[Rfam]
RNA sequence: GGAUGAUGAUGACACGAUGUGAUAAGGUCUCGUUCGUCGUAAUGGUGGGAUCUAACUUACCUUGCCGACCAUCCUGUUAUAUCACCACCCAUAAACUGAGUCC
Dot-bracket structure: ((((..........................................((.(.......)...))....................................))))

The family of this 103-nucleotide sequence from Mikania micrantha is "Small nucleolar RNA Z43".
By type it is a C/D-box small nucleolar RNA.
Its family is annotated with RNA processing and nucleolus in the Gene Ontology.